RNA: S4-Fusobacteriales ribosomal protein leader
Organism: Propionigenium maris
RNA sequence: CUGUAAAGGCAUGUGAACCGUAGGGUCACUCCUAUUCGUUACGAAUGGGGCAUGCCGAAGAA
Number, nucleotide and partner (000 for none) at each position: 001c000002u000003g000004u000005a000006a000007a000008g056009g055010c054011a053012u052013g051014u028015g027016a000017a026018c025019c024020g000021u000022a000023g000024g019025g018026u017027c015028a014029c000030u000031c049032c048033u047034a046035u045036u044037c043038g042039u000040u000041a000042c038043g037044a036045a035046u034047g033048g032049g031050g000051c013052a012053u011054g010055c009056c008057g000058a000059a000060g000061a000062a000